[Rfam]
RNA sequence: AUUGCGAAGCUGGGGGCCACUAGAAGGACGUUCAGUCAGCGCCCCUGUCAGGUAUCUGUUACCUGCGUAUCCUUCU
Numbered sequence: 001a002u003u004g005c006g007a008a009g010c011u012g013g014g015g016g017c018c019a020c021u022a023g024a025a026g027g028a029c030g031u032u033c034a035g036u037c038a039g040c041g042c043c044c045c046u047g048u049c050a051g052g053u054a055u056c057u058g059u060u061a062c063c064u065g066c067g068u069a070u071c072c073u074u075c076u
Stems, first nucleotide, its partner, number of pairs: 013045005023075006030037001049065006
RNA: Mammalian CPEB3 ribozyme